[Rfam]
RNA sequence: UGAUGAUAGUGAGGGAAAUUUAUGGGCAUAACCUUAAAUCUCUCCCAAGCUUGGUAGAGAUUCUCUCCAUAUUUCUAUCUAAAACUCAAGAUAUCACUCCUUAAGCG
Number, nucleotide and partner (000 for none) at each position: 001u107002g000003a000004u104005g102006a101007u000008a000009g000010u000011g000012a000013g000014g000015g000016a000017a000018a000019u000020u000021u000022a000023u000024g000025g000026g000027c000028a000029u000030a000031a000032c000033c000034u000035u000036a000037a000038a000039u000040c000041u000042c000043u000044c000045c000046c000047a000048a000049g000050c000051u000052u000053g000054g000055u000056a000057g074058a073059g000060a000061u000062u000063c000064u000065c000066u000067c000068c000069a000070u000071a000072u000073u058074u057075c000076u000077a000078u000079c000080u000081a000082a000083a000084a000085c000086u000087c000088a000089a000090g000091a000092u000093a000094u000095c000096a000097c000098u000099c000100c000101u006102u005103a000104a004105g000106c000107g001
Notes
Plant small nucleolar RNA R71: a 107-nucleotide RNA sequence from Capsicum baccatum. Gene Ontology terms of the family: nucleolus and RNA processing. The literature on the family includes a 2003 paper in Trends Plant Sci by Brown et al., "Plant snoRNAs: functional evolution and new modes of gene expression". The organism belongs to Capsicum, within Eukaryota. It is annotated as a C/D-box small nucleolar RNA.